Description:
The record is a 37-nucleotide RNA from Lentimonas sp. CC11, which matches "abiF RNA" in Rfam. Rfam's curators write: Actinobacteria, Bacteroidetes, Clostridia, Proteobacteria, one Clostridia phage. It scores 40 bits against the family's covariance model.

RNA sequence: CCCGCCAAGCCUAUCGUAGAAGCUCAAAUUGGUGGGU
Numbered sequence: 001c002c003c004g005c006c007a008a009g010c011c012u013a014u015c016g017u018a019g020a021a022g023c024u025c026a027a028a029u030u031g032g033u034g035g036g037u
Stems, first nucleotide, its partner, number of pairs: 001036006008024003